The record is a 111-nucleotide RNA from Caulobacter vibrioides, which matches "Manganese Mn2+ riboswitch aptamer (yybP-ykoY)" in Rfam. It scores 50 bits against the family's covariance model.

[Rfam]
RNA sequence: CCGCCCACCUUUGGGGAGUAGCCGCCCGCGUCUAUCAGCGGGCCCCGCCGUCAACACACUUGAUCUUCCGGAUCAUGGCGCGGGGAAGGGAAGCGGACUUGAAGCUUCCUU
Dot-bracket structure: .........................(((..........))).(((((.(((((.......(((((.....)))))))))))))))..........................